[Rfam]
Notes
A member of the RNA family "Wolbachia sRNA 46" from Pararge aegeria, 104 nucleotides long. For this family Rfam cites "Wolbachia small noncoding RNAs and their role in cross-kingdom communications" (Mayoral et al., Proc Natl Acad Sci U S A, 2014). It scores 67 bits against the family's covariance model. It is annotated as a small RNA. Lineage of the source: Eukaryota > Ecdysozoa > Panorpida > Amphiesmenoptera > Pararge aegeria.
RNA sequence: UCCGUACCAAAUGUUGUCAUCCAAGUAGCUGACACUGGGACCCAAAAAAAAAGAAAUAUGGAUCCCAGUGUCAGCUACUUGGAUGACAACAAGAUAGAGAACUU
Numbered sequence: 001u002c003c004g005u006a007c008c009a010a011a012u013g014u015u016g017u018c019a020u021c022c023a024a025g026u027a028g029c030u031g032a033c034a035c036u037g038g039g040a041c042c043c044a045a046a047a048a049a050a051a052a053g054a055a056a057u058a059u060g061g062a063u064c065c066c067a068g069u070g071u072c073a074g075c076u077a078c079u080u081g082g083a084u085g086a087c088a089a090c091a092a093g094a095u096a097g098a099g100a101a102c103u104u
Stems, first nucleotide, its partner, number of pairs: 008097001010095001015088026042061003